[Rfam]
RNA: Small nucleolar RNA snoR136
Organism: Handroanthus impetiginosus
RNA sequence: UUGCUUUACUUGCAUGAUGUAUCUUUGUCACGCUAAUGUAUUUCAUUGUGUGGCAUUAUUACAAGUGAAGCAAGAAAUAUGUUCCUCUCGCUAUCCGGUGAUACUCUACGAUAGUGCAUUUGGACGUUGGGGAACUACAUAU
Dot-bracket structure: ((((..((((((...((.(......((((((((..(((.....))).)))))))).).)).))))))..)))).......(((((((.((...(((((.....................)))))))..))))))).......